Small nucleolar RNA snoR104: a 119-nucleotide sequence. The literature on the family includes a 2002 paper in Curr Biol by Marker et al., "Experimental RNomics: identification of 140 candidates for small non-messenger RNAs in the plant Arabidopsis thaliana". It scores 64 bits against the family's covariance model. By type it is an H/ACA-box small nucleolar RNA.
RNA sequence: GGGAAACAUCAAGAGCAUUGAUUGUUUCCUGAUGAAUCUUCCAACAAAAAGCUGCUGCAAUUUCCUGCUUGUAGUUCUUGAGCAAGAUCUCUACAAGUCUCAUUUUGCAAGAUACAUGC
Numbered sequence: 001g002g003g004a005a006a007c008a009u010c011a012a013g014a015g016c017a018u019u020g021a022u023u024g025u026u027u028c029c030u031g032a033u034g035a036a037u038c039u040u041c042c043a044a045c046a047a048a049a050a051g052c053u054g055c056u057g058c059a060a061u062u063u064c065c066u067g068c069u070u071g072u073a074g075u076u077c078u079u080g081a082g083c084a085a086g087a088u089c090u091c092u093a094c095a096a097g098u099c100u101c102a103u104u105u106u107g108c109a110a111g112a113u114a115c116a117u118g119c
Base pairs, nucleotide, nucleotide: 001030002029003028005026006025007024008023009021010020011019055111056110067098068097069096070095071094072093073092074091076087077086078085